[Rfam]
RNA sequence: UCCGACAAAGCCAAACCCUUCGCGAGGAGGGGGCGGAAAGCGGCGGGUCUUCGCGACGAAGAUGGCCGAGCUGCCGAGG
Numbered sequence: 001u002c003c004g005a006c007a008a009a010g011c012c013a014a015a016c017c018c019u020u021c022g023c024g025a026g027g028a029g030g031g032g033g034c035g036g037a038a039a040g041c042g043g044c045g046g047g048u049c050u051u052c053g054c055g056a057c058g059a060a061g062a063u064g065g066c067c068g069a070g071c072u073g074c075c076g077a078g079g
Base pairs, nucleotide, nucleotide: 001079003076004075011036012035016031017030018029019028020027021026034065039072040071041070044068045067046066047063048062049061
c-di-GMP-I-GGC riboswitch aptamer: a 79-nucleotide RNA sequence from Geotalea uraniireducens. On this family, see Weinberg et al., Proc Natl Acad Sci U S A 2017: "Bioinformatic analysis of riboswitch structures uncovers variant classes with altered ligand specificity". The family's consensus secondary structure is taken from published work.